[Rfam]
The record is a 143-nucleotide RNA sequence from Paenibacillus sp. UNCCL117, which matches "c-di-AMP riboswitch aptamer (ydaO/yuaA leader)" in Rfam. A search with the family's covariance model found it, with a score of 74 bits. Rfam 15.1 lists 7,607 matches to the family in 2,262 species. NCBI's taxonomy places the organism under Bacteria, Bacilli, Caryophanales, Paenibacillaceae, Paenibacillus.
RNA sequence: AUAAAAAAAUGGCCGAAUCCUAUUCAGCAUAAGAAUGGGUACGGGGGAUGAUUUACCUGGGGUGAAUGUUCGUUUUUUGCGAACUAGGGAGCUACCUCUUCCGAAUCCGUCAACUAACCUCGAAGGCUGCAGGAGGAAUCUGA
Numbered sequence: 001a002u003a004a005a006a007a008a009a010u011g012g013c014c015g016a017a018u019c020c021u022a023u024u025c026a027g028c029a030u031a032a033g034a035a036u037g038g039g040u041a042c043g044g045g046g047g048a049u050g051a052u053u054u055a056c057c058u059g060g061g062g063u064g065a066a067u068g069u070u071c072g073u074u075u076u077u078u079g080c081g082a083a084c085u086a087g088g089g090a091g092c093u094a095c096c097u098c099u100u101c102c103g104a105a106u107c108c109g110u111c112a113a114c115u116a117a118c119c120u121c122g123a124a125g126g127c128u129g130c131a132g133g134a135g136g137a138a139u140c141u142g143a
Base pairs, nucleotide, nucleotide: 011128012127013126014125019039020038021037022036023035024034025033042122043121044120045119046118060108061107062106068084069083070082071081087102088101089100090099